[Rfam]
RNA: rpsB sRNA
RNA sequence: CACACAUGAGGAUUGGUUUUGCCGAAAUUGCAAAGCCCCUCCGGUGCCGAAAUCUUCGGCCCACUUCCUCAUGGCGGAUUAACCGGAGAAAGGAUAAAGA
Numbered sequence: 001c002a003c004a005c006a007u008g009a010g011g012a013u014u015g016g017u018u019u020u021g022c023c024g025a026a027a028u029u030g031c032a033a034a035g036c037c038c039c040u041c042c043g044g045u046g047c048c049g050a051a052a053u054c055u056u057c058g059g060c061c062c063a064c065u066u067c068c069u070c071a072u073g074g075c076g077g078a079u080u081a082a083c084c085g086g087a088g089a090a091a092g093g094a095u096a097a098a099g100a
Stems, first nucleotide, its partner, number of pairs: 001076001003074001005073007015039002030037001046060005